[Rfam]
The family of this 64-nucleotide sequence from Labrus bergylta is "Small nucleolar RNA SNORD75". It scores 64 bits against the family's covariance model. It is annotated as a C/D-box small nucleolar RNA. The family has 5 seed sequences and 767 matches in Rfam 15.1.

RNA sequence: AGUCAGUGAUGAUGUUUAAGAGUAGUGGACAGAAGUGAUUUCUGAGUAAUUAUACACUGAGACU
Numbered sequence: 001a002g003u004c005a006g007u008g009a010u011g012a013u014g015u016u017u018a019a020g021a022g023u024a025g026u027g028g029a030c031a032g033a034a035g036u037g038a039u040u041u042c043u044g045a046g047u048a049a050u051u052a053u054a055c056a057c058u059g060a061g062a063c064u
Base pairs, nucleotide, nucleotide: 001064002063003062004061
Dot-bracket structure: ((((........................................................))))